Overview: Shown here is a 146-nucleotide RNA from Nonomuraea jiangxiensis, a member of the family "c-di-AMP riboswitch aptamer (ydaO/yuaA leader)". NCBI's taxonomy places the organism under Bacteria, Bacillati, Actinomycetes, Streptosporangiaceae, Nonomuraea. Its family is annotated with regulation of gene expression and cyclic-di-AMP binding in the Gene Ontology. From the family's description: This family represents a conserved RNA structure found upstream of the ydaO and yuaA genes in Bacillus subtilis and related genes in other bacteria.
Nucleotides: 146
Base pairs, nucleotide, nucleotide: 012130013129014128018035019034020033021032022031023030024029036126037125038124039123040122041121046054055111056110057109063087066084067083068082069081070080071079072078090105091104092103093102
Number, partner (000 for none) and nucleotide at each position: 001000u002000u003000c004000u005000u006000g007000a008000c009000c010000a011000g012130g013129c014128c015000u016000a017000a018035u019034c020033c021032g022031c023030a024029c025000c026000c027000u028000c029024g030023u031022g032021c033020g034019g035018a036126g037125c038124c039123g040122g041121g042000g043000a044000c045000c046054c047000a048000c049000c050000u051000u052000c053000g054046g055111g056110g057109g058000u059000g060000a061000a062000u063087c064000g065000c066084c067083c068082g069081c070080c071079g072078g073000c074000u075000c076000g077000a078072c079071c080070g081069g082068c083067g084066g085000c086000g087063g088000u089000a090105g091104g092103g093102c094000a095000c096000u097000u098000c099000c100000a101000g102093g103092c104091c105090c106000g107000a108000a109057c110056c111055c112000g113000u114000c115000a116000g117000c118000u119000a120000a121041c122040c123039c124038g125037g126036u127000a128014g129013g130012c131000g132000u133000a134000u135000g136000g137000a138000a139000g140000c141000a142000a143000g144000g145000a146000g